[Rfam]
RNA sequence: AUGGCGGCAUCCUAUGGAGCUGCACGGUCUUUCGUCUUAUAGCUUGAUCGCAAAACUGAAUUGUCAUUUGAAUCGACCGCUUGGAUCUUAACUAGACCGAGACGGAAGG
Dot-bracket structure: .(((((((.((.....))))))).))..................................................((((((((.(((.....)))))))).)))....
Rfam assigns this 109-nucleotide RNA from Anaerosporomusa subterranea to the family "pan motif".
Taxonomically the source falls in Anaerosporomusa (Bacteria, Bacillati, Bacillota, Acetonemataceae).
It is annotated as a cis-regulatory element.